A member of the RNA family "UnaL2 LINE 3' element" from Ameiurus melas, 54 nucleotides long. It scores 59 bits against the family's covariance model. Rfam links the family to the GO term transposition, RNA-mediated.
RNA sequence: UUGUCUUGUAAUUGUAAGUCGCUUUGGAUAAAAGUGUCUGCUAAAUGAAAAAAU
Numbered sequence: 001u002u003g004u005c006u007u008g009u010a011a012u013u014g015u016a017a018g019u020c021g022c023u024u025u026g027g028a029u030a031a032a033a034g035u036g037u038c039u040g041c042u043a044a045a046u047g048a049a050a051a052a053a054u
Stems, first nucleotide, its partner, number of pairs: 013043001014041003020036006
Dot-bracket structure: ............((((...((((((.....))))))..))).)...........

Annotation: The organism belongs to Ameiurus, within Eukaryota. Pairs were carried over by alignment from the consensus structure, which is taken from published work.